[Rfam]
RNA sequence: UACCCUUUUUAAAAGCAGUCCCGUGAGGCUGACAAAGGGGAACCGGCAAGAGAAUUGUCUUUCUUUUGCUGUGCUCUUAAACCCUCUUUGCAGCCUUACGCAAAGAGGGUUUUUUACU
Numbered sequence: 001u002a003c004c005c006u007u008u009u010u011a012a013a014a015g016c017a018g019u020c021c022c023g024u025g026a027g028g029c030u031g032a033c034a035a036a037g038g039g040g041a042a043c044c045g046g047c048a049a050g051a052g053a054a055u056u057g058u059c060u061u062u063c064u065u066u067u068g069c070u071g072u073g074c075u076c077u078u079a080a081a082c083c084c085u086c087u088u089u090g091c092a093g094c095c096u097u098a099c100g101c102a103a104a105g106a107g108g109g110u111u112u113u114u115u116a117c118u
Base pairs, nucleotide, nucleotide: 003040004039005038006037007036008035009034016031017030018029019028020027044071045070046069047068048067049066050065051064052063053062054061079112080111081110082109083108084107085106086105087104088103089102090101091100